[Rfam]
SAM-I/IV (S-adenosyl methionine) riboswitch aptamer: a 119-nucleotide RNA sequence from Prevotella sp. ne3005. Pairs were carried over by alignment from the consensus structure, which is taken from published work.

RNA sequence: CGAAAGCAUCAAGAGCAGUUACCCCUUCGGGAGUAAACUCACCAACCGAGCUUAAAUAGCUUUAGCCACGGUGGUAGUACGAUGCGGAAGCAUUAUAAACUUCAAAAAAUUAAAGUUAU
Numbered sequence: 001c002g003a004a005a006g007c008a009u010c011a012a013g014a015g016c017a018g019u020u021a022c023c024c025c026u027u028c029g030g031g032a033g034u035a036a037a038c039u040c041a042c043c044a045a046c047c048g049a050g051c052u053u054a055a056a057u058a059g060c061u062u063u064a065g066c067c068a069c070g071g072u073g074g075u076a077g078u079a080c081g082a083u084g085c086g087g088a089a090g091c092a093u094u095a096u097a098a099a100c101u102u103c104a105a106a107a108a109a110u111u112a113a114a115g116u117u118a119u
Stems, first nucleotide, its partner, number of pairs: 006085005015040001017039004041075003046071003050066002087103004